RNA sequence: GUUGAGGAUCAAGGUUAGCCCCCGUUUUGUUGCCAGGUUUAUACCGAACAACGUGCGGGGGUUUUCU
Numbered sequence: 001g002u003u004g005a006g007g008a009u010c011a012a013g014g015u016u017a018g019c020c021c022c023c024g025u026u027u028u029g030u031u032g033c034c035a036g037g038u039u040u041a042u043a044c045c046g047a048a049c050a051a052c053g054u055g056c057g058g059g060g061g062u063u064u065u066c067u
Base pairs, nucleotide, nucleotide: 017063018062019061020060021059022058023057024056025055028053029052030051031050032049036044
rdlD antitoxin: a 67-nucleotide RNA. Rfam links the family to the GO terms mRNA binding and negative regulation of translation. Rfam classes the family as an antitoxin RNA. The family has 52 seed sequences and 86 matches in Rfam 15.1. Pairs were carried over by alignment from the consensus structure.